[Rfam]
This 52-nucleotide RNA sequence from Tieghemostelium lacteum belongs to the Rfam family "Class I RNA from Dictyostelium". Dictyostelium Class I RNA was first reported for Aspegren et al. 2004 in Dictyostelium discoideum. A reference for the family is Kjellin et al. (2021), "Abundantly expressed class of noncoding RNAs conserved through the multicellular evolution of dictyostelid social amoebas", Genome Res. The source organism's lineage runs through Eukaryota, Evosea, Dictyostelia, Raperosteliaceae and Tieghemostelium. The family's RNA type in Rfam is non-coding RNA gene.
RNA sequence: GAACUCUUACAGCAAUUAAAUCAACUCCACUCAUUGAAAAAACCGAGUUCUG
Numbered sequence: 001g002a003a004c005u006c007u008u009a010c011a012g013c014a015a016u017u018a019a020a021u022c023a024a025c026u027c028c029a030c031u032c033a034u035u036g037a038a039a040a041a042a043c044c045g046a047g048u049u050c051u052g
Stems, first nucleotide, its partner, number of pairs: 001050005